Notes: Rfam assigns this 92-nucleotide RNA sequence from Futiania mangrovi to the family "Selenocysteine transfer RNA". The base pairs follow the family's consensus structure, which is taken from published work. Clan: tRNA clan. The family has 109 seed sequences and 4,211 matches in Rfam 15.1.
[Rfam]
RNA sequence: GGAAGAGGAUCGGAUCCCGGUGGUCCGCACGGGCUUCAAACCCGUUGAGGCGCGCAAGCCGCGUCUGGUGGGUUCGACUCCCACCCUCUUCC
Numbered sequence: 001g002g003a004a005g006a007g008g009a010u011c012g013g014a015u016c017c018c019g020g021u022g023g024u025c026c027g028c029a030c031g032g033g034c035u036u037c038a039a040a041c042c043c044g045u046u047g048a049g050g051c052g053c054g055c056a057a058g059c060c061g062c063g064u065c066u067g068g069u070g071g072g073u074u075c076g077a078c079u080c081c082c083a084c085c086c087u088c089u090u091c092c
Stems, first nucleotide, its partner, number of pairs: 001092008011027005017022001029045005048066005069083004